[Rfam]
RNA sequence: GGGGUAGCCCCGUGGCGCUGUCGGACCCCCGACCUGGCAGCUCCGCGGGGCCUCUUC
Numbered sequence: 001g002g003g004g005u006a007g008c009c010c011c012g013u014g015g016c017g018c019u020g021u022c023g024g025a026c027c028c029c030c031g032a033c034c035u036g037g038c039a040g041c042u043c044c045g046c047g048g049g050g051c052c053u054c055u056u057c
Stems, first nucleotide, its partner, number of pairs: 002056003007051009017041006